Rfam assigns this 115-nucleotide RNA from Australopyrum retrofractum to the family "Plastid-psbA-1 3UTR RNA". The family's RNA type in Rfam is cis-regulatory element. The source organism's lineage runs through Eukaryota, Petrosaviidae, Triticeae, Hordeinae and Australopyrum. About the family: Plastid psbA-1 is a non-coding RNA (ncRNA) present in plastids. It was identified in inverted repeat sequences in the 3 prime untranslate region (3UTR) of photosystem II quinone-binding protein (psbA). The base pairs follow the family's consensus structure, which was predicted with LocARNA. On this family, see Richter et al., Plant Commun 2023: "Retrograde signaling in plants: A critical review focusing on the GUN pathway and beyond".

RNA sequence: GUUGAAGUUCCAUCUAUUAAUGGAUAAGGUUUUUCUGCUAACAUAUAAGAAUUUUUGAAGAAAGAAAAGACAGAAAUACCCAAUAUCUUGCUAUAGUAAGAUAUUGGGUAUUUCU
Numbered sequence: 001g002u003u004g005a006a007g008u009u010c011c012a013u014c015u016a017u018u019a020a021u022g023g024a025u026a027a028g029g030u031u032u033u034u035c036u037g038c039u040a041a042c043a044u045a046u047a048a049g050a051a052u053u054u055u056u057g058a059a060g061a062a063a064g065a066a067a068a069g070a071c072a073g074a075a076a077u078a079c080c081c082a083a084u085a086u087c088u089u090g091c092u093a094u095a096g097u098a099a100g101a102u103a104u105u106g107g108g109u110a111u112u113u114c115u
Stems, first nucleotide, its partner, number of pairs: 009024005072115008081106003085102005